Rfam assigns this 72-nucleotide RNA from Ligaoa zhengdingensis to the family "Fluoride riboswitch aptamer (crcB RNA motif)".
[Rfam]
RNA sequence: AAAUAACGUGGGAAUGAAGUUCUCCCUUGGGAAACCUAAACCGCUUACUAAGCUGAUGACUUCUGUGAUUUU
Numbered sequence: 001a002a003a004u005a006a007c008g009u010g011g012g013a014a015u016g017a018a019g020u021u022c023u024c025c026c027u028u029g030g031g032a033a034a035c036c037u038a039a040a041c042c043g044c045u046u047a048c049u050a051a052g053c054u055g056a057u058g059a060c061u062u063c064u065g066u067g068a069u070u071u072u
Stems, first nucleotide, its partner, number of pairs: 010026004016063006043053003

The family has 289 seed sequences and 2,293 matches in Rfam 15.1.